[Rfam]
RNA sequence: CCAUCCGAGGGGCGCUGCAGCAGGCUGCAAAUCUGUUUUGACCCCCAAGCCCGGCAUUCCAGCCUGGCACCGUGGCGGAUUCGAAUCAGGCUUGCGCCUGUCAGGCUCGGAUGGGGCGUUAACCAUACGCAUCAACGGCGCCCAUUCGCA
Number, nucleotide and partner (000 for none) at each position: 001c000002c113003a112004u111005c110006c109007g108008a107009g000010g000011g000012g000013c000014g000015c000016u000017g000018c000019a000020g000021c100022a099023g098024g097025c096026u000027g000028c000029a000030a000031a000032u000033c000034u000035g000036u000037u000038u000039u000040g000041a000042c000043c000044c000045c000046c000047a000048a000049g000050c000051c000052c000053g000054g000055c000056a000057u000058u000059c000060c000061a000062g000063c000064c000065u000066g000067g000068c000069a000070c000071c000072g000073u000074g000075g000076c000077g000078g000079a000080u000081u000082c000083g000084a000085a000086u000087c000088a000089g000090g000091c000092u000093u000094g000095c000096g025097c024098c023099u022100g021101u000102c000103a000104g000105g000106c000107u008108c007109g006110g005111a004112u003113g002114g000115g000116g000117c000118g000119u000120u000121a000122a000123c000124c000125a000126u000127a000128c000129g000130c000131a000132u000133c000134a000135a000136c000137g000138g000139c000140g000141c000142c000143c000144a000145u000146u000147c000148g000149c000150a000
RNA: SAH (S-adenosyl-L-homocysteine) riboswitch aptamer